[Rfam]
RNA sequence: CCGCAUAUUCGGCCUAGUCCCGGCGCGCCGGGAACGGAGGAACCAAUCUUUUGGGGUUAAUCUCUGCUUUUGCAGAGAAGGAUGAGAAUACUCUUUCGCCAUCCUACCCGUCAGCUAACUUCGUCGGCUAAAGCGAAGGAGGUC
Dot-bracket structure: ..........((((...(((((......)))))((((((....((......))(((.....((((........))))..((((.................))))..))).........)))))).))))...............
Shown here is a 144-nucleotide sequence from Aneurinibacillus soli, a member of the family "c-di-AMP riboswitch aptamer (ydaO/yuaA leader)".